[Rfam]
RNA sequence: AGAGGUCACAAGUUUGAGGCCACAGCAGAAACGCUUACGGCGUGGGCCUGUCAGAUUCCAGUGAAUCUGCAAAUUCUGCU
Numbered sequence: 001a002g003a004g005g006u007c008a009c010a011a012g013u014u015u016g017a018g019g020c021c022a023c024a025g026c027a028g029a030a031a032c033g034c035u036u037a038c039g040g041c042g043u044g045g046g047c048c049u050g051u052c053a054g055a056u057u058c059c060a061g062u063g064a065a066u067c068u069g070c071a072a073a074u075u076c077u078g079c080u
Stems, first nucleotide, its partner, number of pairs: 016048001018047001020045002024080007031043003052069007
RNA: Mammalian CPEB3 ribozyme
Organism: Alligator sinensis